RNA: ES036 (CssrF) sRNA
Organism: Shigella flexneri
RNA sequence: AAAUUUUUGCAAAUUCAAUAAAUUGCAGGAAAUACGUAGGCCU
Numbered sequence: 001a002a003a004u005u006u007u008u009g010c011a012a013a014u015u016c017a018a019u020a021a022a023u024u025g026c027a028g029g030a031a032a033u034a035c036g037u038a039g040g041c042c043u
Stems, first nucleotide, its partner, number of pairs: 004031003008027005